Source information: Shown here is a 62-nucleotide RNA from Mus musculus, a member of the family "U7 small nuclear RNA".
RNA sequence: AGCUAUUAUAGCUCUUUUAGAGUGUUUCUAGCAGGUUUUCUGAGUAUGAUUGGAAAACCCAC
Number, nucleotide and partner (000 for none) at each position: 001a000002g000003c000004u000005a000006u000007u000008a000009u000010a000011g000012c000013u000014c000015u000016u000017u000018u000019a000020g000021a000022g000023u000024g000025u000026u000027u000028c000029u000030a000031g000032c000033a000034g059035g058036u057037u056038u055039u054040c053041u052042g051043a050044g000045u000046a000047u000048g000049a000050u043051u042052g041053g040054a039055a038056a037057a036058c035059c034060c000061a000062c000
Annotation
Pairs were carried over by alignment from the consensus structure, which was predicted with PFOLD. It scores 53 bits against the family's covariance model. The family has 49 seed sequences and 10,439 matches in Rfam 15.1. NCBI's taxonomy places the organism under Eukaryota, Bilateria, Gnathostomata, Sarcopterygii, Mus.